Shown here is a 110-nucleotide RNA sequence from Providencia stuartii, a member of the family "Alpha operon ribosome binding site". Rfam's curators write: The bacterial alpha operon ribosome binding site is surrounded by this complex pseudoknotted structure. Translation of the mRNA produces 4 ribosomal protein products, one of which (S4) acts as a translational repressor by binding to the nested pseudoknot region. The mechanism of repression is thought to involve a conformational switch in the pseudoknot region and ribosome entrapment. NCBI's taxonomy places the organism under Bacteria, Pseudomonadati, Enterobacterales, Morganellaceae, Providencia. Pairs were carried over by alignment from the consensus structure, which is taken from published work. Its family is annotated with ribosome binding in the Gene Ontology.
Nucleotides: 110
Stems, first nucleotide, its partner, number of pairs: 004056010024094003032085004040109003
Number, partner (000 for none) and nucleotide at each position: 001000a002000a003000g004056a005055u006054a007053c008052a009051u010050u011049a012048u013047u014000g015000u016000u017000u018000g019000a020000g021000u022000a023000u024094c025093c026092u027000g028000a029000a030000a031000a032085c033084g034083g035082g036000c037000u038000u039000u040109u041108c042107a043000g044000c045000a046000c047013a048012g049011u050010a051009a052008u053007g054006u055005a056004u057000a058000u059000u060000u061000u062000a063000a064000c065000u066000u067000a068000g069000g070000a071000g072000u073000g074000c075000a076000u077000a078000g079000u080000g081000g082035c083034c084033c085032g086000u087000a088000u089000a090000g091000c092026a093025g094024g095000c096000a097000u098000u099000a100000a101000c102000a103000u104000u105000c106000c107042u108041g109040a110000u